Notes: A member of the RNA family "Plastid-ycf3 group II-D1 intron" from Chenopodium quinoa, 47 nucleotides long. A search with the family's covariance model found it, with a score of 59 bits. The source organism's lineage runs through Eukaryota, Streptophytina, Tracheophyta, Caryophyllales and Chenopodium. Rfam describes the family as follows. Plastid rpl16 is a non-coding RNA (ncRNA) recognised in plastids. It was recognised in and intronic region of a ribosome rpl16 gene. The family has 385 seed sequences and 1,488 matches in Rfam 15.1.
RNA sequence: AUUCCUUCCGUCGUGUAUCCCCGAUUGAUGCAACCUCAAAUACUAUA
Numbered sequence: 001a002u003u004c005c006u007u008c009c010g011u012c013g014u015g016u017a018u019c020c021c022c023g024a025u026u027g028a029u030g031c032a033a034c035c036u037c038a039a040a041u042a043c044u045a046u047a
Base pairs, nucleotide, nucleotide: 010025011024012023013022032044